Record summary:
Shown here is a 162-nucleotide RNA from Fervidicella metallireducens, a member of the family "M-box riboswitch aptamer (ykoK leader)". M-box riboswitch, also know as ykoK leader is described as a metaloregulatory RNA that sense divalent metals and function as a genetic control element of genes related to divalent metal transport in bacteria. It was first reported upstream of the B.subtilis ykoK gene and genes with related functions in other bacteria. The source organism's lineage runs through Bacteria, Bacillati, Clostridia, Clostridiaceae and Fervidicella metallireducens. Pairs were carried over by alignment from the consensus structure.
[Rfam]
RNA sequence: AAUAUCAAUUGUUAGGUGAGGCUCCUAUAAAGAUAUAUGCUGCUACCCAGAAAAAUCGAGAGAUUCCAAUGGGUUAACAGAAAUAAUCGUGAAGGUUUUUUCUAACGUAGCUGACAAUAGUCAAAGCUUUGUAGUGCUAAAGCUCAACGAUAAAGAAAUAAU
Numbered sequence: 001a002a003u004a005u006c007a008a009u010u011g012u013u014a015g016g017u018g019a020g021g022c023u024c025c026u027a028u029a030a031a032g033a034u035a036u037a038u039g040c041u042g043c044u045a046c047c048c049a050g051a052a053a054a055a056u057c058g059a060g061a062g063a064u065u066c067c068a069a070u071g072g073g074u075u076a077a078c079a080g081a082a083a084u085a086a087u088c089g090u091g092a093a094g095g096u097u098u099u100u101u102c103u104a105a106c107g108u109a110g111c112u113g114a115c116a117a118u119a120g121u122c123a124a125a126g127c128u129u130u131g132u133a134g135u136g137c138u139a140a141a142g143c144u145c146a147a148c149g150a151u152a153a154a155g156a157a158a159u160a161a162u
Stems, first nucleotide, its partner, number of pairs: 005158001009154002011148002013093001015144003020138003025134008039111005045074005054065004080102004086096003113122003